[Rfam]
MIR1846 microRNA precursor family: a 95-nucleotide RNA from Oryza sativa. A search with the family's covariance model found it, with a score of 92 bits. Rfam 15.1 lists 66 matches to the family in 8 species. The organism belongs to Oryza sativa, within Eukaryota. The literature on the family includes a 2009 paper in Nucleic Acids Res by Xue et al., "Characterization and expression profiles of miRNAs in rice seeds".
RNA sequence: CCUCCCAAUGAGCCGCCGGAUCUCCCAGUGAGGAGGCCGGGGCCGCCGGAUCCGGUGACCCCGGUCUCCUCGCCGGUGGAUCCGGCGCCCAGAUG
Number, nucleotide and partner (000 for none) at each position: 001c000002c000003u095004c000005c000006c092007a000008a000009u000010g090011a000012g088013c087014c000015g086016c085017c084018g083019g082020a081021u080022c079023u078024c000025c076026c075027a000028g073029u072030g071031a070032g069033g068034a067035g066036g065037c064038c063039g062040g061041g060042g059043c000044c057045g056046c055047c054048g053049g000050a000051u000052c000053c048054g047055g046056u045057g044058a000059c042060c041061c040062c039063g038064g037065u036066c035067u034068c033069c032070u031071c030072g029073c028074c000075g026076g025077u000078g023079g022080a021081u020082c019083c018084g017085g016086c015087g013088c012089c000090c010091a000092g006093a000094u000095g003